[Rfam]
RNA sequence: UUAGAUGUGGACAGCUUCACACCGGCCAGAGUUACCAGUCUCGACUGGAACAGUAAAAGCCGACGUUAAGUCGGUUUUUUAC
Numbered sequence: 001u002u003a004g005a006u007g008u009g010g011a012c013a014g015c016u017u018c019a020c021a022c023c024g025g026c027c028a029g030a031g032u033u034a035c036c037a038g039u040c041u042c043g044a045c046u047g048g049a050a051c052a053g054u055a056a057a058a059g060c061c062g063a064c065g066u067u068a069a070g071u072c073g074g075u076u077u078u079u080u081a082c
Stems, first nucleotide, its partner, number of pairs: 022048004027043001029040002055079010